[Rfam]
RNA: Fungal signal recognition particle RNA
Organism: Lineolata rhizophorae
RNA sequence: UGGCUGUCAUGGUCGUUUCGGAGGAAGGCUGGCGUAGGCUUCUCCCUAAUCACCCUCACAAUUCUGCGAGCUGUGCGCCCAGUUCGAAUGGCGUGGUGCUCGAAUUAUUCCCACUCGUGCAGGUAACUCACGAUUGCUGGGCGGGCUUGAGCAAUGAGAUCUACUGUUGAGAGAAGCAAUUCUGCAGACACGAUCUCACCAUACCAUGGCGGUGCUGGAAUACGCGCGCUUGUGGCACGGGUGGUAGGAGAGGUGUGCUGUGUCAACCUCUUUU
Numbered sequence: 001u002g003g004c005u006g007u008c009a010u011g012g013u014c015g016u017u018u019c020g021g022a023g024g025a026a027g028g029c030u031g032g033c034g035u036a037g038g039c040u041u042c043u044c045c046c047u048a049a050u051c052a053c054c055c056u057c058a059c060a061a062u063u064c065u066g067c068g069a070g071c072u073g074u075g076c077g078c079c080c081a082g083u084u085c086g087a088a089u090g091g092c093g094u095g096g097u098g099c100u101c102g103a104a105u106u107a108u109u110c111c112c113a114c115u116c117g118u119g120c121a122g123g124u125a126a127c128u129c130a131c132g133a134u135u136g137c138u139g140g141g142c143g144g145g146c147u148u149g150a151g152c153a154a155u156g157a158g159a160u161c162u163a164c165u166g167u168u169g170a171g172a173g174a175a176g177c178a179a180u181u182c183u184g185c186a187g188a189c190a191c192g193a194u195c196u197c198a199c200c201a202u203a204c205c206a207u208g209g210c211g212g213u214g215c216u217g218g219a220a221u222a223c224g225c226g227c228g229c230u231u232g233u234g235g236c237a238c239g240g241g242u243g244g245u246a247g248g249a250g251a252g253g254u255g256u257g258c259u260g261u262g263u264c265a266a267c268c269u270c271u272u273u274u
Base pairs, nucleotide, nucleotide: 001015002014003013004012020271021270022269023268024267031264032263033262034261035260036259037258038256039255042252043251044250046248047247049245050244051243052242053241054240055239059066060065069231070230072228073227074226075225076224077223079218080217081216082215083214084212085211086210088207089206090205091204093202094201095200096199106145108143110141111140112139113138115133116132117131118130119129121128122127147151155198156197157196158195159194160193161192165190166189167188168187173182174181175180